RNA sequence: UACACGUUACGUGACUGGCGGAUCAGUGGAUUAACCACAAGAAGCGUAACGGUUGUCGAAGCCGACCGCCUGGGCCUAAAGU
Numbered sequence: 001u002a003c004a005c006g007u008u009a010c011g012u013g014a015c016u017g018g019c020g021g022a023u024c025a026g027u028g029g030a031u032u033a034a035c036c037a038c039a040a041g042a043a044g045c046g047u048a049a050c051g052g053u054u055g056u057c058g059a060a061g062c063c064g065a066c067c068g069c070c071u072g073g074g075c076c077u078a079a080a081g082u
Stems, first nucleotide, its partner, number of pairs: 005051008015041002017070005026038004059077001061075003
The family of this 82-nucleotide RNA from Sulfobacillus thermosulfidooxidans is "ZMP/ZTP riboswitch aptamer (pfl RNA motif)". The base pairs follow the family's consensus structure, which is taken from published work. Lineage of the source: Bacteria > Clostridia > Eubacteriales > Sulfobacillus > Sulfobacillus thermosulfidooxidans. Its family is annotated with one-carbon metabolic process and regulation of purine nucleotide biosynthetic process in the Gene Ontology.